Shown here is a 71-nucleotide sequence from Acidisphaera rubrifaciens, a member of the family "Makes More Granules Regulator RNA (mmgR)". The match comes from Rfam's covariance-model search (52 bits). Pairs were carried over by alignment from the consensus structure. Rfam classes the family as a small RNA.
[Rfam]
RNA sequence: UCUUGCCGCUUUCUUGGACGUUUCCUCCCUAAACUUGGCGGCGCGCAAGCGCCGCCUUUUCUUUUUCGGCG
Numbered sequence: 001u002c003u004u005g006c007c008g009c010u011u012u013c014u015u016g017g018a019c020g021u022u023u024c025c026u027c028c029c030u031a032a033a034c035u036u037g038g039c040g041g042c043g044c045g046c047a048a049g050c051g052c053c054g055c056c057u058u059u060u061c062u063u064u065u066u067c068g069g070c071g
Stems, first nucleotide, its partner, number of pairs: 008019001010017002037056008